The family of this 94-nucleotide sequence from Rhodoferax sp. TH121 is "TPP riboswitch aptamer (THI element)". Lineage of the source: Bacteria > Pseudomonadati > Pseudomonadota > Betaproteobacteria > Rhodoferax. Pairs were carried over by alignment from the consensus structure, which is taken from published work. Rfam links the family to the GO term thiamine pyrophosphate binding.
RNA sequence: CGCUUCCACCGGGGGUGUCCGUCACAGGACUGAGAAAUACCCCAUGUACCUGAUCUGGGUUAUGCCAGCGUAGGAAGUGUGAGAGACCUGUCCC
Number, nucleotide and partner (000 for none) at each position: 001c000002g000003c000004u000005u000006c000007c081008a080009c079010c000011g043012g042013g041014g040015g000016u037017g030018u029019c028020c027021g000022u000023c000024a000025c000026a000027g020028g019029a018030c017031u000032g000033a000034g000035a000036a000037a016038u000039a000040c014041c013042c012043c011044a000045u000046g000047u000048a000049c074050c073051u072052g071053a000054u000055c068056u067057g066058g065059g000060u000061u000062a000063u000064g000065c058066c057067a056068g055069c000070g000071u052072a051073g050074g049075a000076a000077g000078u000079g009080u008081g007082a000083g000084a000085g000086a000087c000088c000089u000090g000091u000092c000093c000094c000